[Rfam]
RNA sequence: GAAAAGUACGGAGGCGCAUCUGCGAUUAGUAAUCUAUUUUCGCUUGAGGAAGCAUGGGAUAGACGAAAGGCAAAGAUGCCGAAGGAUAUAAAGGUUCCUCACUUUAUAUUCCUGGUUACUCGGGAAAUACCCGUUUAACUGUCACAGUUAUGUGGAGAGCCGUUAGCAUA
Number, nucleotide and partner (000 for none) at each position: 001g000002a000003a000004a000005a000006g000007u000008a163009c162010g161011g160012a000013g000014g000015c000016g079017c078018a077019u076020c075021u074022g000023c000024g071025a000026u000027u000028a000029g000030u000031a000032a000033u063034c062035u061036a060037u059038u058039u057040u000041c000042g000043c000044u000045u000046g000047a000048g000049g000050a000051a000052g000053c000054a000055u000056g000057g039058g038059a037060u036061a035062g034063a033064c000065g000066a000067a000068a000069g000070g000071c024072a000073a000074a021075g020076a019077u018078g017079c016080c000081g000082a000083a113084g112085g111086a109087u108088a107089u106090a105091a104092a103093g102094g000095u000096u000097c000098c000099u000100c000101a000102c093103u092104u091105u090106a089107u088108a087109u086110u000111c085112c084113u083114g140115g139116u138117u137118a136119c000120u000121c133122g132123g131124g130125a000126a000127a000128u000129a000130c124131c123132c122133g121134u000135u000136u118137a117138a116139c115140u114141g000142u155143c154144a153145c152146a151147g000148u000149u000150a000151u146152g145153u144154g143155g142156a000157g000158a000159g000160c011161c010162g009163u008164u000165a000166g000167c000168a000169u000170a000
The record is a 170-nucleotide RNA from Tepiditoga spiralis, which matches "Lysine riboswitch aptamer" in Rfam. Lineage of the source: Bacteria > Thermotogota > Thermotogae > Petrotogales > Tepiditoga. The match comes from Rfam's covariance-model search (89 bits).